A member of the RNA family "Purine riboswitch aptamer" from Lihuaxuella thermophila, 102 nucleotides long. The base pairs follow the family's consensus structure, which is taken from published work. The source organism's lineage runs through Bacteria, Bacilli, Caryophanales, Thermoactinomycetaceae and Lihuaxuella.
RNA sequence: AUUUUCUGGUUGAUCUAGACUCGUAUAUAUUCAGGGAUAUGGCCUGAACGUUUCUACCCGGCUGCCGUAAACAGCCGGACUACGUGUUAUAGGUCGCCGGAU
Numbered sequence: 001a002u003u004u005u006c007u008g009g010u011u012g013a014u015c016u017a018g019a020c021u022c023g024u025a026u027a028u029a030u031u032c033a034g035g036g037a038u039a040u041g042g043c044c045u046g047a048a049c050g051u052u053u054c055u056a057c058c059c060g061g062c063u064g065c066c067g068u069a070a071a072c073a074g075c076c077g078g079a080c081u082a083c084g085u086g087u088u089a090u091a092g093g094u095c096g097c098c099g100g101a102u
Stems, first nucleotide, its partner, number of pairs: 018088003022084004030048006058078007